[Rfam]
RNA sequence: ACAACUGUUCCGUACUUCCUUACUUCCCAUAGUGAAAGCGACUUAUGGAAUGUAAAGAAGUAUGGAGCCGGGUU
Numbered sequence: 001a002c003a004a005c006u007g008u009u010c011c012g013u014a015c016u017u018c019c020u021u022a023c024u025u026c027c028c029a030u031a032g033u034g035a036a037a038g039c040g041a042c043u044u045a046u047g048g049a050a051u052g053u054a055a056a057g058a059a060g061u062a063u064g065g066a067g068c069c070g071g072g073u074u
Stems, first nucleotide, its partner, number of pairs: 007068012020055004025050001027048005
Background
Shown here is a 74-nucleotide RNA from Neodiprion lecontei, a member of the family "mir-1 microRNA precursor family". Rfam links the family to the GO terms RISC complex and miRNA-mediated post-transcriptional gene silencing. The literature on the family includes a 2001 paper in Science by Lee and Ambros, "An extensive class of small RNAs in Caenorhabditis elegans". This family represents the microRNA (miRNA) mir-1 family. miRNAs are transcribed as ~70nt precursors (modelled here) and subsequently processed by the Dicer enzyme to give a ~22nt product. In this case the mature sequence comes from the 3' arm of the precursor. Taxonomically the source falls in Neodiprion (Eukaryota, Panarthropoda, Eumetabola, Endopterygota). The family has 137 seed sequences and 4,474 matches in Rfam 15.1.